[Rfam]
RNA sequence: CGAUUGGAUAAACACGAGCAAUCGUGUGAAACUCGUCUGUAAUCCCGGCAUCACCUUCCAGUGACGGCGACUUUUUUCAAAUGCUGCGCGUUGCAGCACUAUC
Numbered sequence: 001c002g003a004u005u006g007g008a009u010a011a012a013c014a015c016g017a018g019c020a021a022u023c024g025u026g027u028g029a030a031a032c033u034c035g036u037c038u039g040u041a042a043u044c045c046c047g048g049c050a051u052c053a054c055c056u057u058c059c060a061g062u063g064a065c066g067g068c069g070a071c072u073u074u075u076u077u078c079a080a081a082u083g084c085u086g087c088g089c090g091u092u093g094c095a096g097c098a099c100u101a102u103c
Stems, first nucleotide, its partner, number of pairs: 012027006033070005051064004082098006
Notes
The family of this 103-nucleotide sequence is "DUF3577 RNA". Pairs were carried over by alignment from the consensus structure, which is taken from published work.